[Rfam]
This 107-nucleotide sequence from Labilibaculum filiforme belongs to the Rfam family "SAM riboswitch aptamer (S box leader)".
RNA sequence: AAUUUAUACAGAAGAAGUAAGAGAACAGGCUCGUUGACCUUCUGACAACCGCGGCUUCCACAGCUGAAAGGUGUCAAAUCCUGACCAAAUUUUGGUGAAUAUAAAUU
Numbered sequence: 001a002a003u004u005u006a007u008a009c010a011g012a013a014g015a016a017g018u019a020a021g022a023g024a025a026c027a028g029g030c031u032c033g034u035u036g037a038c039c040u041u042c043u044g045a046c047a048a049c050c051g052c053g054g055c056u057u058c059c060a061c062a063g064c065u066g067a068a069a070g071g072u073g074u075c076a077a078a079u080c081c082u083g084a085c086c087a088a089a090u091u092u093u094g095g096u097g098a099a100u101a102u103a104a105a106u107u
Base pairs, nucleotide, nucleotide: 001107002106003105004104005103006102007101008100013043014042015041016040017039021032022031023030026083027082028081029080044075045074046073047072049071050070052066053065054064079099084096085095086094087093088092